A member of the RNA family "engA RNA", 101 nucleotides long.
The family's consensus secondary structure is taken from published work.
It is one of the family's seed sequences.
The family's RNA type in Rfam is cis-regulatory element.
[Rfam]
RNA sequence: GCCCUAACUGCUUAGUAGGGUUUACUCUCACAUACUGUGAGGGCUGGGGAAUGGUCAUCCUCGGCAAAUAUUCAUCGGAUGCCUGACCACAUCCGGCGCCU
Numbered sequence: 001g002c003c004c005u006a007a008c009u010g011c012u013u014a015g016u017a018g019g020g021u022u023u024a025c026u027c028u029c030a031c032a033u034a035c036u037g038u039g040a041g042g043g044c045u046g047g048g049g050a051a052u053g054g055u056c057a058u059c060c061u062c063g064g065c066a067a068a069u070a071u072u073c074a075u076c077g078g079a080u081g082c083c084u085g086a087c088c089a090c091a092u093c094c095g096g097c098g099c100c101u
Stems, first nucleotide, its partner, number of pairs: 001021006026042006043065008075096007